[Rfam]
RNA sequence: AAGUGGGGUAGGGGCGCGAAAUUCAAGAGUCAUCUUUUAGAGGAAGCGAAUCUGAUGAAAAAAGAUAAAAGGGACUUUCGCCGAAGCCUAUUUCUUCGCAGGAAGUAGAGCUGGGUCUACAUUGAACAAGUGUAGGACUGUCAUAGUUAAAUGAUCCCAAAUUUAACUAUGGAGAACUAUCUUGACU
Numbered sequence: 001a002a003g004u005g006g007g008g009u010a011g012g013g014g015c016g017c018g019a020a021a022u023u024c025a026a027g028a029g030u031c032a033u034c035u036u037u038u039a040g041a042g043g044a045a046g047c048g049a050a051u052c053u054g055a056u057g058a059a060a061a062a063a064g065a066u067a068a069a070a071g072g073g074a075c076u077u078u079c080g081c082c083g084a085a086g087c088c089u090a091u092u093u094c095u096u097c098g099c100a101g102g103a104a105g106u107a108g109a110g111c112u113g114g115g116u117c118u119a120c121a122u123u124g125a126a127c128a129a130g131u132g133u134a135g136g137a138c139u140g141u142c143a144u145a146g147u148u149a150a151a152u153g154a155u156c157c158c159a160a161a162u163u164u165a166a167c168u169a170u171g172g173a174g175a176a177c178u179a180u181c182u183u184g185a186c187u
Stems, first nucleotide, its partner, number of pairs: 006182006016081006023074002032066007085112003088108008113139002116136008141172012
Dot-bracket structure: .....((((((....((((((.((.......(((((((.....................)))))))......)).))))))...(((((((((((.....)))))))).)))((.((((((((.....)))))))).)).((((((((((((........))))))))))))....)))))).....